[Rfam]
Shown here is a 97-nucleotide sequence from Ceratitis capitata, a member of the family "mir-283 microRNA precursor family".
RNA sequence: GAUUUGAUUCUUAAAGGUAAAUAUCAGCUGGUAAUUCUGGGAUUUUAUCAAUUUUCAAACACUCGGAAUUUCAGUUGGUAUACACUUUUACGAAUUC
Number, nucleotide and partner (000 for none) at each position: 001g000002a000003u000004u000005u000006g000007a000008u000009u000010c000011u000012u000013a089014a088015a087016g086017g085018u084019a000020a000021a081022u080023a079024u078025c077026a076027g075028c074029u073030g072031g071032u000033a000034a069035u068036u067037c066038u065039g064040g063041g062042a000043u000044u000045u000046u000047a000048u000049c000050a000051a000052u000053u000054u000055u000056c000057a000058a000059a000060c000061a000062c041063u040064c039065g038066g037067a036068a035069u034070u000071u031072c030073a029074g028075u027076u026077g025078g024079u023080a022081u021082a000083c000084a018085c017086u016087u015088u014089u013090a000091c000092g000093a000094a000095u000096u000097c000
Description: Pairs were carried over by alignment from the consensus structure, which was predicted with WAR. The match comes from Rfam's covariance-model search (88 bits). Taxonomically the source falls in Ceratitis (Eukaryota, Ecdysozoa, Eumetabola, Endopterygota). Clan: mir-216 clan.